Shown here is a 92-nucleotide RNA from Streptomyces regalis, a member of the family "sodF sRNA". It scores 95 bits against the family's covariance model. Gene Ontology terms of the family: regulation of mRNA stability, mRNA binding and negative regulation of translation. A reference for the family is Kim et al. (2014), "Inverse regulation of Fe- and Ni-containing SOD genes by a Fur family regulator Nur through small RNA processed from 3'UTR of the sodF mRNA", Nucleic Acids Res. By type it is a small RNA.
[Rfam]
RNA sequence: UCGUCCUGCCUCGUGAUCGUCUUCUCACCCUUCACGAACGGCAGGCGGAAUGAAGGAAGCCCCCGCGAGGACGUGACUCGCGGGGGCUUCCC
Numbered sequence: 001u002c003g004u005c006c007u008g009c010c011u012c013g014u015g016a017u018c019g020u021c022u023u024c025u026c027a028c029c030c031u032u033c034a035c036g037a038a039c040g041g042c043a044g045g046c047g048g049a050a051u052g053a054a055g056g057a058a059g060c061c062c063c064c065g066c067g068a069g070g071a072c073g074u075g076a077c078u079c080g081c082g083g084g085g086g087c088u089u090c091c092c
Stems, first nucleotide, its partner, number of pairs: 001048003005045006013035004019029001055091015